[Rfam]
The record is an 85-nucleotide sequence from Hevea brasiliensis, which matches "Small nucleolar RNA U54" in Rfam. Its Rfam clan is "U54 clan". U54 is a C/D box small nucleolar RNA, which acts as a methylation guide for 18S ribosomal RNA in plants.
Nucleotides: 085
Base pairs, nucleotide, nucleotide: 001085002084003083004082
Number, partner (000 for none) and nucleotide at each position: 001085a002084g003083c004082u005000c006000u007000g008000u009000g010000a011000u012000u013000a014000u015000a016000u017000g018000c019000c020000c021000a022000g023000a024000u025000u026000u027000a028000g029000g030000g031000g032000c033000g034000u035000a036000u037000a038000c039000g040000c041000u042000a043000u044000u045000c046000u047000g048000a049000u050000u051000a052000a053000a054000a055000c056000g057000u058000g059000a060000g061000c062000a063000g064000a065000u066000a067000u068000c069000u070000g071000a072000a073000g074000a075000a076000a077000a078000u079000g080000a081000a082004a083003g084002c085001u